[Rfam]
RNA sequence: CAAACUCUCAGGUUCUGGCUUUGGCCCUCGGUAUGCCAGAACUUUUGCGGUGUCACGGGGCUUUCCCCGUGGCGCCUUUUUUU
Number, nucleotide and partner (000 for none) at each position: 001c000002a000003a000004a000005c000006u000007c000008u000009c000010a044011g043012g042013u041014u040015c039016u038017g037018g036019c035020u000021u000022u000023g000024g000025c031026c030027c000028u000029c000030g026031g025032u000033a000034u000035g019036c018037c017038a016039g015040a014041a013042c012043u011044u010045u000046u000047g000048c000049g076050g075051u074052g073053u072054c071055a070056c069057g068058g067059g066060g065061c000062u000063u000064u000065c060066c059067c058068c057069g056070u055071g054072g053073c052074g051075c050076c049077u000078u000079u000080u000081u000082u000083u000
The family of this 83-nucleotide RNA from Caballeronia glathei is "Burkholderia sRNA 54".
Rfam classes the family as a small RNA.
Rfam's curators write: Identified by RNA-seq, RACE and Northern blot.
Rfam 15.1 lists 91 matches to the family in 60 species.
A search with the family's covariance model found it, with a score of 61 bits.